[Rfam]
Small nucleolar RNA SNORA64/SNORA10 family: a 134-nucleotide RNA from Panthera leo. Its Rfam clan is "SNORA64 clan". About the family: This family belongs to the H/ACA class of small nucleolar RNAs (snoRNAs) which act as guides in the the modification of uridines to pseudouridines. This family includes the human snoRNAs U64 and ACA10 and mouse MBI-29. Gene Ontology terms of the family: nucleolus and RNA processing. The base pairs follow the family's consensus structure, which is taken from published work.

RNA sequence: GCUCUCUCGGCUCUGCACAGCCACACUUGCUGCCUCACGUGUGGCUUUCGUAAUGGGGAGAGAGAGGAAAGAUCUCCUCUGGACCUCAGAGCGGCCUGGCGGUGGCCACUCUUUCCUUGAGGAGGGCAACAGGG
Numbered sequence: 001g002c003u004c005u006c007u008c009g010g011c012u013c014u015g016c017a018c019a020g021c022c023a024c025a026c027u028u029g030c031u032g033c034c035u036c037a038c039g040u041g042u043g044g045c046u047u048u049c050g051u052a053a054u055g056g057g058g059a060g061a062g063a064g065a066g067g068a069a070a071g072a073u074c075u076c077c078u079c080u081g082g083a084c085c086u087c088a089g090a091g092c093g094g095c096c097u098g099g100c101g102g103u104g105g106c107c108a109c110u111c112u113u114u115c116c117u118u119g120a121g122g123a124g125g126g127c128a129a130c131a132g133g134g
Base pairs, nucleotide, nucleotide: 002066003065004064005063006062007061008060011058012057013056014055015054019046020045021044022043023042024041025040026039074124075123076122077121078120081117082116088112089111090110093107094106095105096104
Dot-bracket structure: .(((((((..(((((...((((((((............)))))))).......))))).))))))).......(((((..((.....(((..((((.......))))..)))...))..)))))..........
The match comes from Rfam's covariance-model search (100 bits). Taxonomically the source falls in Panthera (Eukaryota, Opisthokonta, Craniata, Theria). For this family Rfam cites "Nucleolar localization signals of box H/ACA small nucleolar RNAs" (Narayanan et al., EMBO J, 1999).